[Rfam]
RNA sequence: GGCGAUAAACGCCUUGCGGAAUAAGCGUUGUGGACCCGGGGGCGGUACCCGGCGCCUCCACCAAACAAACCACCGGUCUCUCGGGCGUUGCCGUAGGGAGCGGGUUCGUUGGGGGCGAAAUAGGAUCGACACGCGUGGUAAAGGCAUGGUCUUCGCCCGGCAUGGUUCCGCCGUUAUCGGGCCAUUGCAAUAGUUGCCAACGACAACGUUGCUCCGGUCGCCGUUGCCGCCUAA
Numbered sequence: 001g002g003c004g005a006u007a008a009a010c011g012c013c014u015u016g017c018g019g020a021a022u023a024a025g026c027g028u029u030g031u032g033g034a035c036c037c038g039g040g041g042g043c044g045g046u047a048c049c050c051g052g053c054g055c056c057u058c059c060a061c062c063a064a065a066c067a068a069a070c071c072a073c074c075g076g077u078c079u080c081u082c083g084g085g086c087g088u089u090g091c092c093g094u095a096g097g098g099a100g101c102g103g104g105u106u107c108g109u110u111g112g113g114g115g116c117g118a119a120a121u122a123g124g125a126u127c128g129a130c131a132c133g134c135g136u137g138g139u140a141a142a143g144g145c146a147u148g149g150u151c152u153u154c155g156c157c158c159g160g161c162a163u164g165g166u167u168c169c170g171c172c173g174u175u176a177u178c179g180g181g182c183c184a185u186u187g188c189a190a191u192a193g194u195u196g197c198c199a200a201c202g203a204c205a206a207c208g209u210u211g212c213u214c215c216g217g218u219c220g221c222c223g224u225u226g227c228c229g230c231c232u233a234a
Stems, first nucleotide, its partner, number of pairs: 001157005015146003026135003030132003036052005053117007158173004
A member of the RNA family "permuted transfer-messenger RNA" from Azospirillum sp. TSH58, 234 nucleotides long. Taxonomically the source falls in Azospirillum (Bacteria, Pseudomonadota, Alphaproteobacteria, Azospirillaceae). Bacterial tmRNA, also known as 10Sa RNA or SsrA, is named for its dual tRNA and mRNA-like properties. Its role is to liberate the mRNA from a stalled ribosome. To accomplish this part of the tmRNA is used as a reading frame that ends in a translation stop signal. The broken mRNA is replaced in the ribosome by the tmRNA and translation of the tmRNA leads to addition of a proteolysis tag to the incomplete protein enabling recognition by a protease. The family's RNA type in Rfam is non-coding RNA gene.